[Rfam]
RNA sequence: AAUACUACACUAACCAAAGCACUGACUUGAUGUCUACAUACAGUUAGUGCUUUUUGUUGGUGUGGUGUAG
Numbered sequence: 001a002a003u004a005c006u007a008c009a010c011u012a013a014c015c016a017a018a019g020c021a022c023u024g025a026c027u028u029g030a031u032g033u034c035u036a037c038a039u040a041c042a043g044u045u046a047g048u049g050c051u052u053u054u055u056g057u058u059g060g061u062g063u064g065g066u067g068u069a070g
Base pairs, nucleotide, nucleotide: 004066005065006064007063008062009061010060011059013057014056016054017053018051019050020049021048022047023046025044026043027042
RNA: miR-430 microRNA precursor family